The record is a 400-nucleotide sequence from Streptomyces marincola, which matches "Bacterial RNase P class A" in Rfam. The source organism's lineage runs through Bacteria, Bacillati, Actinomycetes, Streptomycetaceae and Streptomyces. Pairs were carried over by alignment from the consensus structure, which is taken from published work.
Nucleotides: 400
Stems, first nucleotide, its partner, number of pairs: 001396004006391005011385001012341007020044002023041006049383003053380005058226004065277004070222005075089005090104001091102004105217002110215002112211003127156002129152006135145003164182006184206001185204008230298004257289006269281004305324001307322006
Number, partner (000 for none) and nucleotide at each position: 001396c002395g003394a004393g005000c006391c007390g008389g009388c010387c011385g012341g013340g014339c015338g016337g017336u018335c019000g020044c021043g022000u023041c024040g025039g026038g027037g028036u029000c030000c031000u032000c033000g034000c035000g036028a037027c038026c039025c040024c041023g042000c043021c044020g045000a046000g047000g048000a049383a050382c051381g052000u053380c054379c055378g056377g057376g058226c059225u060224c061223c062000a063000c064000a065277g066276g067275g068274c069000a070222g071221g072220g073219u074218g075089g076088u077087a078086g079085g080000u081000a082000a083000c084000g085079c086078c087077u088076a089075c090104c091102u092101g093100g094099g095000g096000c097000g098000a099094c100093c101092c102091a103000c104090g105217g106216g107000a108000a109000a110215g111214u112211g113210c114209c115000a116000c117000a118000g119000a120000a121000a122000a123000c124000a125000g126000a127156c128155c129152g130151c131150c132149g133148g134147g135145g136144g137143c138000c139000g140000c141000u142000g143137g144136c145135c146000a147134c148133c149132c150131g151130g152129u153000a154000a155128g156127g157000g158000u159000g160000a161000a162000a163000c164182g165181g166180u167179g168178g169177u170000g171000u172000a173000a174000g175000a176000g177169a178168c179167c180166a181165c182164c183000a184206g185204c186203g187202c188201c189200c190199a191198g192197g193000g194000u195000g196000a197192c198191c199190u200189g201188g202187g203186c204185g205000g206184c207000u208000c209114g210113g211112u212000a213000a214111a215110c216106c217105c218074c219073a220072c221071c222070c223061g224060g225059a226058g227000c228000a229000a230298g231297g232296u233295c234000a235000a236000g237000a238000u239000g240000g241000g242000g243000c244000c245000g246000c247000g248000a249000g250000g251000c252000c253000c254000c255000g256000c257289g258288c259287g260286g261285a262284c263000g264000a265000c266000c267000g268000a269281g270280g271279g272278c273000u274068g275067c276066c277065c278272g279271c280270c281269c282000g283000a284262g285261u286260c287259c288258g289257c290000g291000g292000g293000u294000g295233g296232a297231c298230c299000g300000c301000a302000u303000g304000a305324g306000a307322c308321c309320g310319g311318u312317g313000g314000u315000g316000a317312c318311a319310c320309c321308g322307g323000c324305c325000c326000c327000a328000g329000a330000u331000g332000g333000a334000u335018g336017g337016c338015c339014g340013c341012c342000u343000c344000c345000c346000c347000c348000g349000g350000g351000g352000c353000c354000g355000c356000g357000a358000g359000g360000c361000c362000c363000c364000g365000g366000g367000g368000a369000g370000a371000c372000a373000g374000a375000a376057c377056c378055c379054g380053g381051c382050g383049u384000a385011c386000a387010g388009g389008c390007c391006g392000a393004c394003u395002c396001g397000u398000c399000c400000g